[Rfam]
RNA sequence: ACUGUGAUGUGUGCAUAGUUUCCAUCUGUGUCUGAUAGCAGUGUCUGUCUGUGUUUUGCAUUCAGAUCUUGCUGUCCACACAAAUAUCAUGUGGCCAAAGAAUAACUUGGGGUCAUAGUACUGGUCUAGUGUUCUCCUUUUGGACAUAGCCACCACUGGCCAGCCUCCAAAUUCCCACACACAG
Numbered sequence: 001a002c003u004g005u006g007a008u009g010u011g012u013g014c015a016u017a018g019u020u021u022c023c024a025u026c027u028g029u030g031u032c033u034g035a036u037a038g039c040a041g042u043g044u045c046u047g048u049c050u051g052u053g054u055u056u057u058g059c060a061u062u063c064a065g066a067u068c069u070u071g072c073u074g075u076c077c078a079c080a081c082a083a084a085u086a087u088c089a090u091g092u093g094g095c096c097a098a099a100g101a102a103u104a105a106c107u108u109g110g111g112g113u114c115a116u117a118g119u120a121c122u123g124g125u126c127u128a129g130u131g132u133u134c135u136c137c138u139u140u141u142g143g144a145c146a147u148a149g150c151c152a153c154c155a156c157u158g159g160c161c162a163g164c165c166u167c168c169a170a171a172u173u174c175c176c177a178c179a180c181a182c183a184g
Base pairs, nucleotide, nucleotide: 013092014091015090016089029082030081031080033078034077036074037073038072039071040070041069043067044066045065046064047063050060051059052058108177109176110175111174112173121163122162123161124160125159126158128157129156130155131154133148135144136143
RNA: Small nucleolar RNA SNORA23